[Rfam]
The family of this 151-nucleotide RNA sequence from Peribacillus muralis is "SAM riboswitch aptamer (S box leader)". Taxonomically the source falls in Peribacillus (Bacteria, Bacillati, Bacilli, Bacillaceae). A search with the family's covariance model found it, with a score of 72 bits. For this family Rfam cites "Free state conformational sampling of the SAM-I riboswitch aptamer domain" (Stoddard et al., Structure, 2010). Gene Ontology term of the family: regulation of gene expression.
RNA sequence: UUCUUAUUUUGAGCAGGUGGAGGGACUAGCCCGAUGAAGCCCAGCAACCGACCGUAAUUCCAUUGUAAGAUGGGGCGGAAUCCUCCGCCGGACUUUCUCGUCCACAGGGCACGGUGCUAAUUCUUGCAGCAUAUGUGCUGGGAGAUAAGAA
Numbered sequence: 001u002u003c004u005u006a007u008u009u010u011g012a013g014c015a016g017g018u019g020g021a022g023g024g025a026c027u028a029g030c031c032c033g034a035u036g037a038a039g040c041c042c043a044g045c046a047a048c049c050g051a052c053c054g055u056a057a058u059u060c061c062a063u064u065g066u067a068a069g070a071u072g073g074g075g076c077g078g079a080a081u082c083c084u085c086c087g088c089c090g091g092a093c094u095u096u097c098u099c100g101u102c103c104a105c106a107g108g109g110c111a112c113g114g115u116g117c118u119a120a121u122u123c124u125u126g127c128a129g130c131a132u133a134u135g136u137g138c139u140g141g142g143a144g145a146u147a148a149g150a151a
Base pairs, nucleotide, nucleotide: 001151002150003149004148005147006146007145008144013042016041017040018039022032023031024030026126028124029123043118044117045116046115048114049113050110052108053107122143127140128139129138130137131136